The record is a 76-nucleotide sequence from Danio rerio, which matches "mir-30 microRNA precursor family" in Rfam.
The sequence is in the family's curated seed alignment.
RNA sequence: CGGGCUACUGUAAACAUCCUUGACUGGAAGCUGGUGCACAUGAUGGAGCUUUCAGUCGGAUGUUUGCAGCAGCCAA
Numbered sequence: 001c002g003g004g005c006u007a008c009u010g011u012a013a014a015c016a017u018c019c020u021u022g023a024c025u026g027g028a029a030g031c032u033g034g035u036g037c038a039c040a041u042g043a044u045g046g047a048g049c050u051u052u053c054a055g056u057c058g059g060a061u062g063u064u065u066g067c068a069g070c071a072g073c074c075a076a
Stems, first nucleotide, its partner, number of pairs: 003074004008069012023056010
Gene Ontology terms of the family: RISC complex and gene silencing by miRNA. Rfam's curators write: This family consists of the mammalian microRNA (miRNA) precursor mir-30a. On this family, see Lagos-Quintana et al., Science 2001: "Identification of novel genes coding for small expressed RNAs".